[Rfam]
The family of this 66-nucleotide RNA sequence from Terrihalobacillus insolitus is "Bacillaceae-1 RNA". It is annotated as a small RNA. The base pairs follow the family's consensus structure, which is taken from published work.

RNA sequence: GUGUUCAAAAAGUCGACUAAUGUCGCCACGUCCUGUAGCAACGUCGACACUAGCACGUCCUGUGCG
Number, nucleotide and partner (000 for none) at each position: 001g000002u000003g000004u000005u000006c000007a000008a000009a000010a000011a000012g048013u047014c046015g045016a044017c043018u000019a000020a000021u000022g000023u000024c000025g039026c038027c000028a036029c035030g000031u000032c000033c000034u000035g029036u028037a000038g026039c025040a000041a000042c000043g017044u016045c015046g014047a013048c012049a000050c000051u000052a000053g065054c064055a063056c062057g000058u000059c000060c000061u000062g056063u055064g054065c053066g000